[Rfam]
RNA sequence: UACAGCCCAGGAGACGACAUUCCUCCUGAUAACCGCCGUUCUGGCUGAUGAUAUCUACGCUCGA
Numbered sequence: 001u002a003c004a005g006c007c008c009a010g011g012a013g014a015c016g017a018c019a020u021u022c023c024u025c026c027u028g029a030u031a032a033c034c035g036c037c038g039u040u041c042u043g044g045c046u047g048a049u050g051a052u053a054u055c056u057a058c059g060c061u062c063g064a
Stems, first nucleotide, its partner, number of pairs: 010026004016055002019052003035045003